mir-9195 microRNA precursor family: an 87-nucleotide RNA from Cnephaeus nilssonii. Rfam links the family to the GO terms RISC complex and miRNA-mediated post-transcriptional gene silencing. Rfam 15.1 lists 438 matches to the family in 7 species.
RNA sequence: AGAGGCCCUCUGCGGCCAGGGUGGAAUGCUUGCCUCGUUGCUGCGGUGAUGAGGCAAGCAUUCCACCAGGCCGCUCAUGUUGCCCAC
Numbered sequence: 001a002g003a004g005g006c007c008c009u010c011u012g013c014g015g016c017c018a019g020g021g022u023g024g025a026a027u028g029c030u031u032g033c034c035u036c037g038u039u040g041c042u043g044c045g046g047u048g049a050u051g052a053g054g055c056a057a058g059c060a061u062u063c064c065a066c067c068a069g070g071c072c073g074c075u076c077a078u079g080u081u082g083c084c085c086a087c
Stems, first nucleotide, its partner, number of pairs: 004084003012074006020067014037050005